[Rfam]
RNA sequence: GGCAAUGAUGGUGUAAUUUGCGUCUGACCCCGUGAUGAGCGACAGUUGCCUGCUGUUUCUAUGCUUUCACGGGCGCUUGAAGACAAAAAGAUGUCUGAGCA
Numbered sequence: 001g002g003c004a005a006u007g008a009u010g011g012u013g014u015a016a017u018u019u020g021c022g023u024c025u026g027a028c029c030c031c032g033u034g035a036u037g038a039g040c041g042a043c044a045g046u047u048g049c050c051u052g053c054u055g056u057u058u059c060u061a062u063g064c065u066u067u068c069a070c071g072g073g074c075g076c077u078u079g080a081a082g083a084c085a086a087a088a089a090g091a092u093g094u095c096u097g098a099g100c101a
Base pairs, nucleotide, nucleotide: 002100003099021082023080024079030072031071032070033069034068039064040063041057042056043055044054045053
A member of the RNA family "Small nucleolar RNA SNORD16" from Polypterus senegalus, 101 nucleotides long. The family's consensus secondary structure was predicted with PFOLD. Rfam classes the family as a C/D-box small nucleolar RNA. Rfam 15.1 lists 1,321 matches to the family in 655 species.